[Rfam]
Nucleotides: 056
Stems, first nucleotide, its partner, number of pairs: 001053002004050010018035006
Number, partner (000 for none) and nucleotide at each position: 001053a002052a003000a004050g005049g006048a007047g008046c009045a010044a011043u012042a013041a014000u015000g016000c017000c018035c019034u020033c021032u022031u023030g024000a025000u026000a027000g028000a029000a030023c031022a032021a033020g034019a035018g036000a037000u038000u039000g040000g041013u042012u043011a044010u045009u046008g047007c048006u049005c050004c051000c052002u053001u054000a055000c056000u
The family of this 56-nucleotide RNA from Sladenia celastrifolia is "Plastid-psbA-3 3UTR RNA". It is one of the family's seed sequences. The family's RNA type in Rfam is cis-regulatory element. A reference for the family is Richter et al. (2023), "Retrograde signaling in plants: A critical review focusing on the GUN pathway and beyond", Plant Commun. Plastid psbA-3 is a non-coding RNA (ncRNA) present in plastids. It was identified in inverted repeat sequences in the 3 prime untranslate region (3UTR) of photosystem II quinone-binding protein (psbA). NCBI's taxonomy places the organism under Eukaryota, Magnoliopsida, eudicotyledons, asterids, Sladenia. Its Rfam clan is "Plastid-psbA 3UTR RNA clan".